A member of the RNA family "Actinobacteria sRNA Ms_IGR-7" from Streptomyces sp. NWU339, 117 nucleotides long.
A search with the family's covariance model found it, with a score of 68 bits.
The source organism's lineage runs through Bacteria, Bacillati, Actinomycetota, Actinomycetes and Streptomyces.
Pairs were carried over by alignment from the consensus structure.
It is annotated as a small RNA.

RNA sequence: CGAAGUGCCUUGCUGAUCGUGCGUGCUGGAAGCGUAGAGAACUCCCAUCAUCGCAGGUCACAAGGCACUUCCUCGUUCCAGCACCAGCCCCGGCCCGGGGUUACACGGUGGAUCCAG
Numbered sequence: 001c002g003a004a005g006u007g008c009c010u011u012g013c014u015g016a017u018c019g020u021g022c023g024u025g026c027u028g029g030a031a032g033c034g035u036a037g038a039g040a041a042c043u044c045c046c047a048u049c050a051u052c053g054c055a056g057g058u059c060a061c062a063a064g065g066c067a068c069u070u071c072c073u074c075g076u077u078c079c080a081g082c083a084c085c086a087g088c089c090c091c092g093g094c095c096c097g098g099g100g101u102u103a104c105a106c107g108g109u110g111g112a113u114c115c116a117g
Base pairs, nucleotide, nucleotide: 002071003070004069005068006067007066008065009064010063011062012061014060015059016058018056020055021054022053023052024050025049027047029045031043032042097115098114099113101111102110103109